[Rfam]
RNA: PhotoRC-II RNA
Organism: Yellowseavirus thirtyeight
RNA sequence: GGUCUUUUGUAAACACGCCUCACCGAGACUAAACAGCGUGUCUAAAAAACAGUCUCUCAUAUCUCUGCUAGAGGGUGGCAGAGAAAUAGUAACUCCA
Numbered sequence: 001g002g003u004c005u006u007u008u009g010u011a012a013a014c015a016c017g018c019c020u021c022a023c024c025g026a027g028a029c030u031a032a033a034c035a036g037c038g039u040g041u042c043u044a045a046a047a048a049a050c051a052g053u054c055u056c057u058c059a060u061a062u063c064u065c066u067g068c069u070a071g072a073g074g075g076u077g078g079c080a081g082a083g084a085a086a087u088a089g090u091a092a093c094u095c096c097a
Stems, first nucleotide, its partner, number of pairs: 014040005025056005062084007